Shown here is a 72-nucleotide RNA sequence from Lactococcus termiticola, a member of the family "tRNA". Transfer RNA (tRNA) molecules are approximately 80 nucleotides in length. The base pairs follow the family's consensus structure, which is taken from published work.
[Rfam]
RNA sequence: GCGAACGUAGCUCAGGGGUAGAGCACAACCUUGCCAUGGUUGGGGUCGCGGGUUCGAAUCCCGUCGUUCGCU
Number, nucleotide and partner (000 for none) at each position: 001g071002c070003g069004a068005a067006c066007g065008u000009a000010g024011c023012u022013c021014a000015g000016g000017g000018g000019u000020a000021g013022a012023g011024c010025a000026c042027a041028a040029c039030c038031u000032u000033g000034c000035c000036a000037u000038g030039g029040u028041u027042g026043g000044g000045g000046u000047c000048g064049c063050g062051g061052g060053u000054u000055c000056g000057a000058a000059u000060c052061c051062c050063g049064u048065c007066g006067u005068u004069c003070g002071c001072u000